This 140-nucleotide RNA sequence from a Verrucomicrobiaceae bacterium belongs to the Rfam family "Y RNA-like". By type it is a small RNA. In Deinococcus radiodurans Rsr is tethered via Y RNA to the exoribonuclease PNPase and channels single-stranded RNA into the PNPase cavity. A reference for the family is Wang et al. (2018), "Structural Basis for tRNA Mimicry by a Bacterial Y RNA", Structure.
RNA sequence: CCGGCGAAUGCCGGUGGAACUACAUUCGUUACCCACGAUGAGGUCGCGGGUUCGAAUCCCGCCGGUGCCCCUUAUUUAUGGGCACCGUAGCUCAGCGGUCAGAGCACAUAAUUGUUUCACCAAAUUCUUGUCGCCGGACC
Dot-bracket structure: .((((((.....(((((((...................((.....(((((.......)))))((((((((.........))))))))..((((........)))).))......))))))).........))))))....